[Rfam]
RNA sequence: UGGGAGCGGUGAGGUUUAAGCACGCGGGGUGUUUGUUGUGCGUGAGGUGGCUGAGUUUAGCGAGCAAGGACGCGUGCAAGCCGUGUGGGUGUGCGUGCAAGUCCCGAGUGUGAGUGUGCAAGGCGAGUGCGUGCCCGCGUGCCGAACCGACCCCUUCCUGACGCGUUCCCCCCCUACACUCUGAUCUUAUUUGAUCGGGUCGCGCUCCCGCCUCGCCGGCCCGGCCCGAGAUGAGAAGCUCUCCUCCCGCGAAGCCCCGGCCCCCCCCGGGCCGAGGCGCUGUGCGGCGAGGCCUAUGCGAACAGGCGGCGGCCGCUCCCGGGCUUCCCGAGCCGGCCCUUCCGGGGCCGGCCCGGCCGGGCGCUCAGAAGUGAUGAGUUGAUCAGAUAGACGAGGCGGGGCUCGCCCCUGCCCUUGAGUAUCGAGGCGAUUCUGAUCUGA
Numbered sequence: 001u002g003g004g005a006g007c008g009g010u011g012a013g014g015u016u017u018a019a020g021c022a023c024g025c026g027g028g029g030u031g032u033u034u035g036u037u038g039u040g041c042g043u044g045a046g047g048u049g050g051c052u053g054a055g056u057u058u059a060g061c062g063a064g065c066a067a068g069g070a071c072g073c074g075u076g077c078a079a080g081c082c083g084u085g086u087g088g089g090u091g092u093g094c095g096u097g098c099a100a101g102u103c104c105c106g107a108g109u110g111u112g113a114g115u116g117u118g119c120a121a122g123g124c125g126a127g128u129g130c131g132u133g134c135c136c137g138c139g140u141g142c143c144g145a146a147c148c149g150a151c152c153c154c155u156u157c158c159u160g161a162c163g164c165g166u167u168c169c170c171c172c173c174c175u176a177c178a179c180u181c182u183g184a185u186c187u188u189a190u191u192u193g194a195u196c197g198g199g200u201c202g203c204g205c206u207c208c209c210g211c212c213u214c215g216c217c218g219g220c221c222c223g224g225c226c227c228g229a230g231a232u233g234a235g236a237a238g239c240u241c242u243c244c245u246c247c248c249g250c251g252a253a254g255c256c257c258c259g260g261c262c263c264c265c266c267c268c269g270g271g272c273c274g275a276g277g278c279g280c281u282g283u284g285c286g287g288c289g290a291g292g293c294c295u296a297u298g299c300g301a302a303c304a305g306g307c308g309g310c311g312g313c314c315g316c317u318c319c320c321g322g323g324c325u326u327c328c329c330g331a332g333c334c335g336g337c338c339c340u341u342c343c344g345g346g347g348c349c350g351g352c353c354c355g356g357c358c359g360g361g362c363g364c365u366c367a368g369a370a371g372u373g374a375u376g377a378g379u380u381g382a383u384c385a386g387a388u389a390g391a392c393g394a395g396g397c398g399g400g401g402c403u404c405g406c407c408c409c410u411g412c413c414c415u416u417g418a419g420u421a422u423c424g425a426g427g428c429g430a431u432u433c434u435g436a437u438c439u440g441a
Stems, first nucleotide, its partner, number of pairs: 052163002056160001057076001060073003093111001095109002098106001114151002122143002125140001190237003195229004200224003204221001207219002210216002270324001272322003276318002279316002284313002288311002292307003295302001332362003336358001337356002366440004376433006395413004400408002